[Rfam]
A member of the RNA family "FMN riboswitch aptamer (RFN element)" from Roseibium aggregatum, 174 nucleotides long. The base pairs follow the family's consensus structure, which is taken from published work. Rfam links the family to the GO term FMN binding. The family has 146 seed sequences and 6,230 matches in Rfam 15.1. A search with the family's covariance model found it, with a score of 102 bits. The organism belongs to Roseibium, within Bacteria.
RNA sequence: AGCAGUUCUCGGGGCGGGGUGAAAUUCCCCACCGGCGGUAUCGGGGAAACCCGGAGCCCGCGAGCGCUUCGGAUAAAAUGUUCGAAGGUCAGCAGAUCCGGUGAGAUGCCGGAGCCGACGGUUGAGGUGGCGUCAAGCGAAGCCGCCCGAAAGUCCGGAUGAGAGAGAACUUGA
Numbered sequence: 001a002g003c004a005g006u007u008c009u010c011g012g013g014g015c016g017g018g019g020u021g022a023a024a025u026u027c028c029c030c031a032c033c034g035g036c037g038g039u040a041u042c043g044g045g046g047a048a049a050c051c052c053g054g055a056g057c058c059c060g061c062g063a064g065c066g067c068u069u070c071g072g073a074u075a076a077a078a079u080g081u082u083c084g085a086a087g088g089u090c091a092g093c094a095g096a097u098c099c100g101g102u103g104a105g106a107u108g109c110c111g112g113a114g115c116c117g118a119c120g121g122u123u124g125a126g127g128u129g130g131c132g133u134c135a136a137g138c139g140a141a142g143c144c145g146c147c148c149g150a151a152a153g154u155c156c157g158g159a160u161g162a163g164a165g166a167g168a169a170c171u172u173g174a
Base pairs, nucleotide, nucleotide: 004171005170006169007168008167009166010165017029018028019027033117034116035061036060037059038058056115057114064093065092097113098112099111100110101109119157120156121155